[Rfam]
RNA sequence: GUGACAGAAGAGAGUGAGCACACAUGGUAUUUUCUUGCAUGGUCAUGCUUGAAGCUCUGUGUGCUCACUCUCUAUCUGUCAC
Numbered sequence: 001g002u003g004a005c006a007g008a009a010g011a012g013a014g015u016g017a018g019c020a021c022a023c024a025u026g027g028u029a030u031u032u033u034c035u036u037g038c039a040u041g042g043u044c045a046u047g048c049u050u051g052a053a054g055c056u057c058u059g060u061g062u063g064c065u066c067a068c069u070c071u072c073u074a075u076c077u078g079u080c081a082c
Stems, first nucleotide, its partner, number of pairs: 001082008010072012023059002

Shown here is an 82-nucleotide RNA from Eucalyptus grandis, a member of the family "mir-156 microRNA precursor family". The match comes from Rfam's covariance-model search (85 bits). NCBI's taxonomy places the organism under Eukaryota, Streptophyta, Tracheophyta, Euphyllophyta, Eucalyptus. From the family's description: This family represents the plant microRNA (miRNA) precursor mir-156.